[Rfam]
RNA: msiK RNA
Organism: Nocardia sp. SYP-A9097
RNA sequence: GGAACAACCCCUCUACUCGGAUCGUCCGGCACGUUCCUGCCGGUGAAGGGAUGUGCAC
Numbered sequence: 001g002g003a004a005c006a007a008c009c010c011c012u013c014u015a016c017u018c019g020g021a022u023c024g025u026c027c028g029g030c031a032c033g034u035u036c037c038u039g040c041c042g043g044u045g046a047a048g049g050g051a052u053g054u055g056c057a058c
Base pairs, nucleotide, nucleotide: 009050010049011048012047014045015044026043027042028041029040030039031038